[Rfam]
RNA sequence: UGGUGACUGAUCAUCACCAUCGGGAGUGACUGAAUAACCCUGUUGGAAUUUGGCGGGGUAAUGUAAAUGGUUAGAGGUGGUACUCGCCUUCCCUAAAGGAAGUGAACCCGAACCAAGGGAACCAUUGUUGUUAUGCACAAAUAUUCGCUUUAGCGAUUCCCAUAACAUGAGGGUACGAAGUAUUCCCUCCUCCCACACG
Dot-bracket structure: ((((((.......))))))..(((((..((.......((((((((.....))))))))....))..((((((.(((.[[[[.))).(.((.(......).)).)..(((..]]]].)))))))))...(((((((.........((([[[[..)))....))))))).(((((...]]]]....)))))))))).....
Numbered sequence: 001u002g003g004u005g006a007c008u009g010a011u012c013a014u015c016a017c018c019a020u021c022g023g024g025a026g027u028g029a030c031u032g033a034a035u036a037a038c039c040c041u042g043u044u045g046g047a048a049u050u051u052g053g054c055g056g057g058g059u060a061a062u063g064u065a066a067a068u069g070g071u072u073a074g075a076g077g078u079g080g081u082a083c084u085c086g087c088c089u090u091c092c093c094u095a096a097a098g099g100a101a102g103u104g105a106a107c108c109c110g111a112a113c114c115a116a117g118g119g120a121a122c123c124a125u126u127g128u129u130g131u132u133a134u135g136c137a138c139a140a141a142u143a144u145u146c147g148c149u150u151u152a153g154c155g156a157u158u159c160c161c162a163u164a165a166c167a168u169g170a171g172g173g174u175a176c177g178a179a180g181u182a183u184u185c186c187c188u189c190c191u192c193c194c195a196c197a198c199g
Stems, first nucleotide, its partner, number of pairs: 001019006022194005029064002038058008067125006074085003078115004087104001089102002092099001107119003129167007145156003148180004169189005
This 199-nucleotide sequence belongs to the Rfam family "manA RNA". Rfam's curators write: manA RNA has been located in 5'UTR regions of genes of mannose or fructose metabolism. Has been proposed as a cis-regulatory element and as a riboswitch candidate for his complex secondary structure.